[Rfam]
Shown here is a 92-nucleotide RNA from Dinothrombium tinctorium, a member of the family "mir-46/mir-47/mir-281 microRNA precursor family". Rfam links the family to the GO terms RISC complex and miRNA-mediated post-transcriptional gene silencing.

RNA sequence: GGGUGAAUGCCGCAAAGAGAGCUAUCCGUGGACAGUGUGCUAAAAUUGUUUAUAAUUACUGUCAUGGAAUUGCUCUCUUUAUGGAUAACCUU
Numbered sequence: 001g002g003g004u005g006a007a008u009g010c011c012g013c014a015a016a017g018a019g020a021g022c023u024a025u026c027c028g029u030g031g032a033c034a035g036u037g038u039g040c041u042a043a044a045a046u047u048g049u050u051u052a053u054a055a056u057u058a059c060u061g062u063c064a065u066g067g068a069a070u071u072g073c074u075c076u077c078u079u080u081a082u083g084g085a086u087a088a089c090c091u092u
Base pairs, nucleotide, nucleotide: 014080015079016078017077018076020074021073022072025068026067027066028065031063032062033061035059036058
The match comes from Rfam's covariance-model search (67 bits).